Rfam assigns this 34-nucleotide sequence from Octodon degus to the family "Iron response element I". Gene Ontology term of the family: response to iron ion. For this family Rfam cites "Structured RNA upstream of insect cap distal iron responsive elements enhances iron regulatory protein-mediated control of translation" (Nichol and Winzerling, Insect Biochem Mol Biol, 2002).
RNA sequence: CUGUUUUUGCUUCAACAAUGUUUGGACAGAACAG
Numbered sequence: 001c002u003g004u005u006u007u008u009g010c011u012u013c014a015a016c017a018a019u020g021u022u023u024g025g026a027c028a029g030a031a032c033a034g
Base pairs, nucleotide, nucleotide: 001034002033003032004031005030007029009027011026012025013024014023015022016020
The match comes from Rfam's covariance-model search (42 bits). Rfam classes the family as a cis-regulatory element. The organism belongs to Octodon, within Eukaryota.